The record is a 74-nucleotide RNA sequence from Acyrthosiphon pisum, which matches "mir-3045 microRNA precursor family" in Rfam. The source organism's lineage runs through Eukaryota, Pterygota, Sternorrhyncha, Aphidomorpha and Acyrthosiphon.

RNA sequence: CAGAAUAAGGGCACACUAGAUUAACGUACAAAACCAGUUUUGACCAUAUUCGCCUGGUGUGCUCUUAUUCUGAA
Numbered sequence: 001c002a003g004a005a006u007a008a009g010g011g012c013a014c015a016c017u018a019g020a021u022u023a024a025c026g027u028a029c030a031a032a033a034c035c036a037g038u039u040u041u042g043a044c045c046a047u048a049u050u051c052g053c054c055u056g057g058u059g060u061g062c063u064c065u066u067a068u069u070c071u072g073a074a
Stems, first nucleotide, its partner, number of pairs: 001072019024047001026045001029042004
Rfam's curators put it in the seed alignment.